[Rfam]
A member of the RNA family "Small nucleolar RNA SNORD22" from Bos taurus, 124 nucleotides long. Pairs were carried over by alignment from the consensus structure, which was predicted with PFOLD. The source organism's lineage runs through Eukaryota, Metazoa, Craniata, Teleostomi and Bos. The family's RNA type in Rfam is C/D-box small nucleolar RNA.
Nucleotides: 124
Stems, first nucleotide, its partner, number of pairs: 001123004
Number, partner (000 for none) and nucleotide at each position: 001123u002122c003121c004120c005000a006000g007000u008000g009000a010000a011000g012000a013000a014000a015000c016000a017000u018000u019000c020000a021000u022000g023000u024000c025000u026000u027000a028000u029000u030000c031000c032000c033000u034000g035000u036000c037000c038000u039000a040000g041000u042000c043000c044000c045000a046000u047000a048000g049000c050000c051000u052000g053000u054000a055000a056000a057000g058000g059000u060000g061000a062000a063000c064000c065000c066000a067000c068000u069000g070000g071000g072000g073000u074000u075000g076000g077000c078000u079000g080000g081000g082000g083000g084000a085000g086000a087000a088000g089000a090000g091000g092000a093000a094000a095000g096000u097000u098000c099000a100000u101000u102000c103000c104000a105000g106000a107000a108000g109000g110000a111000a112000c113000u114000g115000u116000c117000u118000g119000a120004g121003g122002g123001a124000u